RNA: U11 spliceosomal RNA
Organism: [Pythium] brassicae
RNA sequence: AAAAAGGGCAGGCUCCGCACUGGAGCGCAGGACUGCGACGUCUUCACGGGCGCCGCGCCUGCGGUGAAUCGCGAUCAAGAGAUUUGCGCUGCGUAAUUUCUCUCUUGCCGGUCGAAUGGGCCUCGCGGUCAAUUCCUCCGG
Numbered sequence: 001a002a003a004a005a006g007g008g009c010a011g012g013c014u015c016c017g018c019a020c021u022g023g024a025g026c027g028c029a030g031g032a033c034u035g036c037g038a039c040g041u042c043u044u045c046a047c048g049g050g051c052g053c054c055g056c057g058c059c060u061g062c063g064g065u066g067a068a069u070c071g072c073g074a075u076c077a078a079g080a081g082a083u084u085u086g087c088g089c090u091g092c093g094u095a096a097u098u099u100c101u102c103u104c105u106u107g108c109c110g111g112u113c114g115a116a117u118g119g120g121c122c123u124c125g126c127g128g129u130c131a132a133u134u135c136c137u138c139c140g141g
Base pairs, nucleotide, nucleotide: 008092009091010090011089013025014024015023016022017021026063027062028061029060030059031058036055037054064087065086066085067084068083069082070081109140110139111138114136115134116133117132120130122128123127